Rfam assigns this 132-nucleotide sequence from Chinchilla lanigera to the family "Small nucleolar RNA SNORA17". The source organism's lineage runs through Eukaryota, Opisthokonta, Hystricomorpha, Chinchillidae and Chinchilla. The literature on the family includes a 1997 paper in J Mol Biol by Ofengand and Bakin, "Mapping to nucleotide resolution of pseudouridine residues in large subunit ribosomal RNAs from representative eukaryotes, prokaryotes, archaebacteria, mitochondria and chloroplasts". Clan: SNORA17 clan. Gene Ontology terms of the family: nucleolus and RNA processing. From the family's description: snoRNA ACA 17 belongs to the H/ACA family of snoRNAs and is predicted to guide pseudouridylation of the 28S rRNA at positions U4659 and U4598. It shares the same host gene together with ACA43. NB This family has a high threshold value to exclude a large number of closely related sequences that do not appear to have conserved H and ACA boxes, and may be pseudogenes. Pairs were carried over by alignment from the consensus structure, which was predicted with RNAalifold.
RNA sequence: UAUGCUCCUCAAGACAUUGCAGGUGUGGCUGCUGUGUCACAUCUGCGUCACUAGGCUGCAGAGAGAAUUGAGGCUAUGUCUACACUCAGUGUUCCCACCCGUGAACACCUGAAUGAUUAGUAGCCUGACAUG
Dot-bracket structure: ..(((.(((...(((...((((.((((((......)))))).)))))))...)))..)))..........(((((((.....((.(((((((((........))))).)))).))....)))))))......